[Rfam]
RNA sequence: AGAGGCACGAUGAGGAGUAAUUAUAGUAGUGGUAUGAGAUUUCAUAUAUCGAUGACUAAUAAUUUUAGUCCUUUUCAUUCUGAGUGCCUU
Numbered sequence: 001a002g003a004g005g006c007a008c009g010a011u012g013a014g015g016a017g018u019a020a021u022u023a024u025a026g027u028a029g030u031g032g033u034a035u036g037a038g039a040u041u042u043c044a045u046a047u048a049u050c051g052a053u054g055a056c057u058a059a060u061a062a063u064u065u066u067a068g069u070c071c072u073u074u075u076c077a078u079u080c081u082g083a084g085u086g087c088c089u090u
Base pairs, nucleotide, nucleotide: 004088005087006086007085008084010078011077012076013075014074039049040048
RNA: Small nucleolar RNA Z162
Organism: Pyrus ussuriensis x Pyrus communis